RNA sequence: GGCAGUGACACGGGGUGCUCCGUCGCGGAGCUGAGAUGAGACCCGUCGAACCUGAUCUAGCUAGGACUAGCGAAGGGAUCGUCACGCGAUGACGCG
Dot-bracket structure: .....((((.((((.((((((.....))))).......)..)))).....(((...((((......))))...)))....))))............

The record is a 96-nucleotide RNA from Angustibacter sp. Root456, which matches "TPP riboswitch aptamer (THI element)" in Rfam. Lineage of the source: Bacteria > Actinomycetota > Actinomycetes > Kineosporiaceae > Angustibacter. The base pairs follow the family's consensus structure, which is taken from published work. Vitamin B(1) in its active form thiamin pyrophosphate (TPP) is an essential coenzyme that is synthesised by coupling of pyrimidine and thiazole moieties in bacteria. The previously detected thiamin-regulatory element, thi box was extended, resulting in a new, highly conserved RNA secondary structure, the THI element, which is widely distributed in eubacteria and also occurs in some archaea. Analysis of operon structures identified a large number of new candidate thiamin-regulated genes, mostly transporters, in various prokaryotic organisms. The THI element is a riboswitch that directly binds to TPP to regulate gene expression through a variety of mechanisms in archaea, bacteria and eukaryotes. through a variety of mechanisms in archaea, bacteria and eukaryotes. Tandem TPP riboswitches have been reported where both TPP riboswitches respond independently to TPP. The structure of TPP riboswitch has been reported for Escherichia coli and Arabidopsis thaliana.